Shown here is a 131-nucleotide sequence from Cyanistes caeruleus, a member of the family "Small nucleolar RNA SNORA44".
[Rfam]
RNA sequence: CUGCAUGUUUAUCCAAGAGCUGUGGCUCCACACAGUAGCUACAGGUCUCCAGCAACAUGCCAGAGCAAUGGGAAGGUCUUUGACUGCUGGGCCUCUUUUGUCCAUGACUGUCACUCACCCCUCCAAUACAU
Numbered sequence: 001c002u003g004c005a006u007g008u009u010u011a012u013c014c015a016a017g018a019g020c021u022g023u024g025g026c027u028c029c030a031c032a033c034a035g036u037a038g039c040u041a042c043a044g045g046u047c048u049c050c051a052g053c054a055a056c057a058u059g060c061c062a063g064a065g066c067a068a069u070g071g072g073a074a075g076g077u078c079u080u081u082g083a084c085u086g087c088u089g090g091g092c093c094u095c096u097u098u099u100g101u102c103c104a105u106g107a108c109u110g111u112c113a114c115u116c117a118c119c120c121c122u123c124c125a126a127u128a129c130a131u
Stems, first nucleotide, its partner, number of pairs: 013044001018040002020035005071124003075120002086111002088104004

ACA44 is a member of the H/ACA class of snoRNA that guide the sites of modification of uridines to pseudouridines. On this family, see Huttenhofer et al., EMBO J 2001: "RNomics: an experimental approach that identifies 201 candidates for novel, small, non-messenger RNAs in mouse".